[Rfam]
RNA sequence: GUUUGCUAUACUAUGUAUAACUUCUUAAUUACAAGAAGUUAUCUCCUUUGUGUUGUUUAUAGUAACAAAACAAAUUUUGCUCGAAGUACUGUGACAGUACCUAGUCCUUACCGUUACAAGUACAUUAAUAUUCAUUUCCCAUAAAAACCAAGUAUAUAAAGUGUCUCCUCACUUUGCAUGCUUGGUUUUU
Numbered sequence: 001g002u003u004u005g006c007u008a009u010a011c012u013a014u015g016u017a018u019a020a021c022u023u024c025u026u027a028a029u030u031a032c033a034a035g036a037a038g039u040u041a042u043c044u045c046c047u048u049u050g051u052g053u054u055g056u057u058u059a060u061a062g063u064a065a066c067a068a069a070a071c072a073a074a075u076u077u078u079g080c081u082c083g084a085a086g087u088a089c090u091g092u093g094a095c096a097g098u099a100c101c102u103a104g105u106c107c108u109u110a111c112c113g114u115u116a117c118a119a120g121u122a123c124a125u126u127a128a129u130a131u132u133c134a135u136u137u138c139c140c141a142u143a144a145a146a147a148c149c150a151a152g153u154a155u156a157u158a159a160a161g162u163g164u165c166u167c168c169u170c171a172c173u174u175u176g177c178a179u180g181c182u183u184g185g186u187u188u189u190u
Base pairs, nucleotide, nucleotide: 018041019040020039021038022037023036024035025034026033047074048073049072050071051070053068054067055066056065057064086123087122088121089120090118091117092116093115094114095113097111098110099109148185149184150183151182152181153180154179155178157176
Rfam assigns this 190-nucleotide RNA sequence from Staphylococcus hominis to the family "RNA Staph. aureus D". The family's RNA type in Rfam is small RNA. A reference for the family is Geissmann et al. (2009), "A search for small noncoding RNAs in Staphylococcus aureus reveals a conserved sequence motif for regulation", Nucleic Acids Res. The sequence is in the family's curated seed alignment.